[Rfam]
Nucleotides: 379
Base pairs, nucleotide, nucleotide: 001375002374003373004372005371006370007369008368009367010366011364012320013319014318015317016316017315018314020041021040023038024037025036026035027034028033046362047361048360050359051358052357053356054355055223056222057221058220062256063255064254065253067219068218069217070216071215072086073085074084075083076082087101088099089098090097091096102214103213107212108211109208110207111206124153125152126149127148128147129146130145131144132143133142134141161179162178163177164176165175166174181203182201183200184199185198186197187196188195189194227277228276229275230274236268237267238266239265240264241263248260249259250258251257284303285302286301287300288299289298290297291296
Number, partner (000 for none) and nucleotide at each position: 001375c002374g003373a004372g005371u006370c007369g008368g009367u010366c011364g012320g013319a014318c015317g016316g017315u018314c019000g020041c021040g022000u023038c024037a025036c026035c027034g028033g029000g030000c031000a032000a033028c034027c035026g036025g037024u038023g039000c040021c041020g042000a043000g044000g045000a046362a047361c048360g049000u050359c051358c052357g053356g054355g055223c056222u057221c058220c059000g060000a061000a062256g063255g064254g065253c066000a067219a068218g069217g070216u071215g072086g073085u074084g075083g076082c077000u078000a079000a080000c081000a082076g083075c084074c085073a086072c087101c088099c089098g090097g091096g092000g093000c094000g095000a096091c097090c098089c099088g100000c101087g102214g103213g104000a105000c106000a107212g108211u109208g110207c111206c112000a113000c114000a115000g116000a117000g118000a119000a120000c121000a122000g123000a124153c125152c126149g127148c128147c129146g130145u131144c132143g133142u134141g135000a136000c137000c138000c139000g140000u141134c142133a143132c144131g145130g146129c147128g148127g149126u150000a151000a152125g153124g154000g155000u156000g157000a158000a159000a160000c161179g162178g163177u164176g165175g166174u167000g168000c169000a170000a171000g172000a173000g174166a175165c176164c177163a178162c179161c180000a181203g182201c183200g184199c185198g186197c187196c188195u189194g190000g191000u192000g193000a194189c195188a196187g197186g198185c199184g200183c201182g202000g203181c204000u205000c206111g207110g208109u209000a210000a211108a212107c213103c214102c215071c216070a217069c218068c219067u220058g221057g222056a223055g224000c225000a226000a227277g228276g229275u230274c231000a232000g233000a234000c235000a236268g237267g238266g239265a240264g241263c242000g243000a244000u245000c246000g247000a248260g249259g250258g251257c252000g253065g254064c255063c256062c257251g258250c259249c260248c261000g262000a263241g264240c265239u266238c267237c268236c269000g270000g271000g272000u273000a274230g275229a276228c277227c278000g279000c280000u281000c282000g283000a284303g285302c286301c287300c288299u289298g290297c291296g292000g293000c294000a295000a296291c297290g298289c299288a300287g301286g302285g303284c304000c305000u306000a307000g308000a309000u310000g311000g312000a313000u314018g315017a316016c317015c318014g319013u320012c321000g322000g323000c324000c325000g326000g327000c328000c329000c330000u331000g332000g333000g334000c335000a336000a337000c338000c339000g340000g341000g342000g343000g344000c345000g346000g347000u348000c349000a350000c351000a352000g353000a354000a355054c356053c357052c358051g359050g360048c361047g362046u363000a364011c365000a366010g367009a368008c369007c370006g371005a372004c373003u374002c375001g376000u377000c378000c379000g
Rfam assigns this 379-nucleotide sequence from Xylanimonas allomyrinae to the family "Bacterial RNase P class A". The organism belongs to Xylanimonas, within Bacteria. Rfam's curators write: Ribonuclease P (RNase P) is a ubiquitous endoribonuclease, found in archaea, bacteria and eukarya as well as chloroplasts and mitochondria. The family's consensus secondary structure is taken from published work.